The record is a 95-nucleotide RNA from Cocos nucifera, which matches "Small nucleolar RNA Z161/Z228" in Rfam. The family is grouped with related families in Rfam's "SNORD35 clan". The family has 11 seed sequences and 630 matches in Rfam 15.1.
RNA sequence: GAGCUAGAUGAUGAGAAUGGUUUAUAAAUAUCUCACGAUGGUCAUCUGAGGCAUUUUUGAUGCCUAGACUGAUGCAGAUCUGUUCUCUGAUGGCC
Number, nucleotide and partner (000 for none) at each position: 001g095002a000003g000004c092005u000006a000007g000008a000009u000010g000011a000012u000013g000014a000015g000016a000017a000018u000019g000020g000021u000022u000023u000024a000025u000026a000027a000028a000029u000030a000031u000032c000033u000034c000035a000036c000037g000038a000039u000040g000041g000042u000043c000044a000045u000046c000047u000048g000049a000050g000051g000052c062053a061054u060055u000056u000057u000058u000059g000060a054061u053062g052063c000064c000065u000066a000067g000068a000069c000070u000071g000072a000073u000074g000075c000076a000077g000078a000079u000080c000081u000082g000083u000084u000085c000086u000087c000088u000089g000090a000091u000092g004093g000094c000095c001